[Rfam]
RNA sequence: UCUCCGUGCGCGUCUUGCAAGGAGUCUGCGCCCCAGAGAGUCCCGGGAGCGGCGCCGGCCGGUUCCCGGCUUGCCGGGCCAUGCAGCGGCGGCCCCCGGGCCAUGCAGCUGCGGCCACCGUGGAGCUCCGAGCGGCUGUAGCGCCCCCUAUGAAGCGGCCCGCGAUGCCCCGGCCAUUGUGAACUGUGCCACCCGCCGGAAUACGUUCAGCCCCGGACACACUUAGCCUUGGAUACGAUCGACUCUGCGCGCCCUGGACAAGCAUCGAGGAGGCGAGAGGGCAGAGAGCGCAGGGGAGGCCUCCCCUCACGGGAGGGGGAAGCCGGCGGGUGCAGCGCAGGGACACGCACUUGGGCUGGCACUGGCCGCUGGGG
Numbered sequence: 001u002c003u004c005c006g007u008g009c010g011c012g013u014c015u016u017g018c019a020a021g022g023a024g025u026c027u028g029c030g031c032c033c034c035a036g037a038g039a040g041u042c043c044c045g046g047g048a049g050c051g052g053c054g055c056c057g058g059c060c061g062g063u064u065c066c067c068g069g070c071u072u073g074c075c076g077g078g079c080c081a082u083g084c085a086g087c088g089g090c091g092g093c094c095c096c097c098g099g100g101c102c103a104u105g106c107a108g109c110u111g112c113g114g115c116c117a118c119c120g121u122g123g124a125g126c127u128c129c130g131a132g133c134g135g136c137u138g139u140a141g142c143g144c145c146c147c148c149u150a151u152g153a154a155g156c157g158g159c160c161c162g163c164g165a166u167g168c169c170c171c172g173g174c175c176a177u178u179g180u181g182a183a184c185u186g187u188g189c190c191a192c193c194c195g196c197c198g199g200a201a202u203a204c205g206u207u208c209a210g211c212c213c214c215g216g217a218c219a220c221a222c223u224u225a226g227c228c229u230u231g232g233a234u235a236c237g238a239u240c241g242a243c244u245c246u247g248c249g250c251g252c253c254c255u256g257g258a259c260a261a262g263c264a265u266c267g268a269g270g271a272g273g274c275g276a277g278a279g280g281g282c283a284g285a286g287a288g289c290g291c292a293g294g295g296g297a298g299g300c301c302u303c304c305c306c307u308c309a310c311g312g313g314a315g316g317g318g319g320a321a322g323c324c325g326g327c328g329g330g331u332g333c334a335g336c337g338c339a340g341g342g343a344c345a346c347g348c349a350c351u352u353g354g355g356c357u358g359g360c361a362c363u364g365g366c367c368g369c370u371g372g373g374g
Stems, first nucleotide, its partner, number of pairs: 001319005007313001009311002021043003025037004045305005051300001053298001057133001060130003065123002067120003073115004078109002135180002138177002141175001143174003151167002155163003184295002187292003192288001194286001196284001199282001204279001206277003211272001213270002218241001222237001223233002226230001244268002247265001251263002322370001324368004329363005334357003338353004
RNA: TrkB IRES
Organism: Spermophilus dauricus